This 77-nucleotide RNA from Candidatus Vecturithrix granuli belongs to the Rfam family "c-di-GMP-I-GGC riboswitch aptamer". The organism belongs to Candidatus Vecturithrix, within Bacteria. The match comes from Rfam's covariance-model search (62 bits).

[Rfam]
RNA sequence: UCUGGCAAAGCUAAACCUACCGUGAGAUGGGGACGGAAAGCCGCGGAUCUUUUAUCAAGACAGCCGGGUUGCCUGAA
Numbered sequence: 001u002c003u004g005g006c007a008a009a010g011c012u013a014a015a016c017c018u019a020c021c022g023u024g025a026g027a028u029g030g031g032g033a034c035g036g037a038a039a040g041c042c043g044c045g046g047a048u049c050u051u052u053u054a055u056c057a058a059g060a061c062a063g064c065c066g067g068g069u070u071g072c073c074u075g076a077a
Base pairs, nucleotide, nucleotide: 001077004073011036012035016031017030018029019028021026034063039070040069041068042067044066045065046064048060049059